[Rfam]
RNA: FuFi-1 RNA
RNA sequence: UGUACGAACAGCGGGGAGAACCAACUUGGUUGUGCGGAUCACUAACCGCCAAAGUCGUACAGGCUACAAAGAGUGUCAGUGCUAUAUGGCAUCGCCAAAGCGUGCAGUAGCUCUGGGCAAACAAAACAGUGAAUAACAGCCUUGGUGAUAGCACACCGGGGCUAUUAU
Numbered sequence: 001u002g003u004a005c006g007a008a009c010a011g012c013g014g015g016g017a018g019a020a021c022c023a024a025c026u027u028g029g030u031u032g033u034g035c036g037g038a039u040c041a042c043u044a045a046c047c048g049c050c051a052a053a054g055u056c057g058u059a060c061a062g063g064c065u066a067c068a069a070a071g072a073g074u075g076u077c078a079g080u081g082c083u084a085u086a087u088g089g090c091a092u093c094g095c096c097a098a099a100g101c102g103u104g105c106a107g108u109a110g111c112u113c114u115g116g117g118c119a120a121a122c123a124a125a126a127c128a129g130u131g132a133a134u135a136a137c138a139g140c141c142u143u144g145g146u147g148a149u150a151g152c153a154c155a156c157c158g159g160g161g162c163u164a165u166u167a168u
Stems, first nucleotide, its partner, number of pairs: 001061007034049004040131004062111001064110004073092006080153006093102003135166002138163010
Dot-bracket structure: (((((((..........................((((..{{{{..)))).....)))))))(.((((.....((((((.[[[[[[.))))))(((....)))....)))))................}}}}...((.((((((((((]]]]]])))))))))).))..